[Rfam]
RNA sequence: CUUUGUGUUCUUCCACAGCUUUCUUGAACUGCAUCUGUUGUGUGGAGGUAUGAUUUCCAUUUCCGGUAGUUUUUGCGGUUCAAUAAAGCUGUGGGAAGAUACAGAUA
Number, nucleotide and partner (000 for none) at each position: 001c000002u000003u104004u103005g102006u101007g100008u000009u000010c000011u000012u000013c094014c093015a092016c000017a090018g089019c088020u087021u086022u085023c000024u083025u082026g081027a080028a000029c078030u077031g076032c075033a074034u000035c000036u000037g000038u000039u000040g000041u000042g000043u000044g000045g000046a000047g000048g000049u000050a000051u000052g000053a000054u000055u000056u000057c000058c000059a000060u000061u000062u000063c000064c000065g000066g000067u000068a000069g000070u000071u000072u000073u000074u033075g032076c031077g030078g029079u000080u027081c026082a025083a024084u000085a022086a021087a020088g019089c018090u017091g000092u015093g014094g013095g000096a000097a000098g000099a000100u007101a006102c005103a004104g003105a000106u000107a000

A member of the RNA family "MIR396 microRNA precursor family" from Ipomoea nil, 107 nucleotides long. The family's consensus secondary structure was predicted with WAR. The match comes from Rfam's covariance-model search (89 bits). Lineage of the source: Eukaryota > eudicotyledons > asterids > Convolvulaceae > Ipomoea.